[Rfam]
RNA sequence: GUAAACAACCCCUAAGCCCUUCGGGACUUAGGGGCUUUUAAGGAAACUUAAAAGCCCAUGUUUACCAGACAACUAAUAGGAGUGCCGAAAAUUAGUAGCCGAUAUAGCAGAAAUAGGUACGUUGAGAUGCCGUCUCAGUCUCAACCACUACGGUUAUGCAUUAAACAGUCCUGUGAGGUAGGGACAGUGUGUAUAGCGCUAAACCUGCCAAUAUCUUGUCGAGAGAAAGUCGGA
Numbered sequence: 001g002u003a004a005a006c007a008a009c010c011c012c013u014a015a016g017c018c019c020u021u022c023g024g025g026a027c028u029u030a031g032g033g034g035c036u037u038u039u040a041a042g043g044a045a046a047c048u049u050a051a052a053a054g055c056c057c058a059u060g061u062u063u064a065c066c067a068g069a070c071a072a073c074u075a076a077u078a079g080g081a082g083u084g085c086c087g088a089a090a091a092u093u094a095g096u097a098g099c100c101g102a103u104a105u106a107g108c109a110g111a112a113a114u115a116g117g118u119a120c121g122u123u124g125a126g127a128u129g130c131c132g133u134c135u136c137a138g139u140c141u142c143a144a145c146c147a148c149u150a151c152g153g154u155u156a157u158g159c160a161u162u163a164a165a166c167a168g169u170c171c172u173g174u175g176a177g178g179u180a181g182g183g184a185c186a187g188u189g190u191g192u193a194u195a196g197c198g199c200u201a202a203a204c205c206u207g208c209c210a211a212u213a214u215c216u217u218g219u220c221g222a223g224a225g226a227a228a229g230u231c232g233g234a
Base pairs, nucleotide, nucleotide: 001065002064003063004062005061006060007059010034011033012031013030018025019024035054036053037052038051039050040049041048042047068220069219070218071217072216073098074097075096077094078093079092101215102214103213104212105211107208108207109206110205117151118150121145122144123143124142125141126140127139128138129230130229133226134225135224136223153197154196155195156194157193158192159191160190161189165188166187168185169184170183171182172181
Rfam assigns this 234-nucleotide RNA sequence from Candidatus Thiomargarita nelsonii to the family "HNH endonuclease-associated RNA and ORF (HEARO) RNA". Rfam 15.1 lists 952 matches to the family in 249 species. Lineage of the source: Bacteria > Pseudomonadota > Thiotrichales > Thiotrichaceae > Thiomargarita. By type it is a non-coding RNA gene.